RNA: permuted transfer-messenger RNA
Organism: Rhodocyclaceae bacterium
RNA sequence: GGUCGUAAUCCCGGCGACCCGGAAGCGUUCUGGACGCGGGUUCGAUUCCCGCCACCUCCACCAUGGGGGGGUGUACUGGUUUCGACAGGGCGAACAAGGCUAGCAGGCGACCCGAGAGGCGACGGACGUAAUCCGCGCAAAACCACAAACGCCAACGAUGAGCGUUUCGCACUGGCCGCCUAA
Numbered sequence: 001g002g003u004c005g006u007a008a009u010c011c012c013g014g015c016g017a018c019c020c021g022g023a024a025g026c027g028u029u030c031u032g033g034a035c036g037c038g039g040g041u042u043c044g045a046u047u048c049c050c051g052c053c054a055c056c057u058c059c060a061c062c063a064u065g066g067g068g069g070g071g072u073g074u075a076c077u078g079g080u081u082u083c084g085a086c087a088g089g090g091c092g093a094a095c096a097a098g099g100c101u102a103g104c105a106g107g108c109g110a111c112c113c114g115a116g117a118g119g120c121g122a123c124g125g126a127c128g129u130a131a132u133c134c135g136c137g138c139a140a141a142a143c144c145a146c147a148a149a150c151g152c153c154a155a156c157g158a159u160g161a162g163c164g165u166u167u168c169g170c171a172c173u174g175g176c177c178g179c180c181u182a183a
Stems, first nucleotide, its partner, number of pairs: 001112005016100001026092003030088003036052005053073007113128002